[Rfam]
RNA sequence: CCCUGACAGUCGCGUGGUGCGGCUGACACUAGCCUCGACAGGAGACUCCCAUG
Numbered sequence: 001c002c003c004u005g006a007c008a009g010u011c012g013c014g015u016g017g018u019g020c021g022g023c024u025g026a027c028a029c030u031a032g033c034c035u036c037g038a039c040a041g042g043a044g045a046c047u048c049c050c051a052u053g
Stems, first nucleotide, its partner, number of pairs: 002042004007025005
Dot-bracket structure: .((((.(((((.........))))).............))))...........
RNA: Mu-gpT-DE RNA